[Rfam]
RNA sequence: CUUCUUAUUAAAAAGUCAUCUCGUAUAUAUUUGGGAUCAGGCCUGAAUGUUUCUACCCGGAAACCUUAAUUUUCGGACUACGAGCAAGAUGAAUCGUCAU
Dot-bracket structure: ...................((((((...(((((((......)))))))........(((((((......)))))))..))))))................
Overview: The family of this 100-nucleotide sequence from Paenibacillus sp. FSL H8-0548 is "Purine riboswitch aptamer". On this family, see Mandal et al., Cell 2003: "Riboswitches Control Fundamental Biochemical Pathways in Bacillus subtilis and Other Bacteria". The family's consensus secondary structure is taken from published work. A search with the family's covariance model found it, with a score of 64 bits.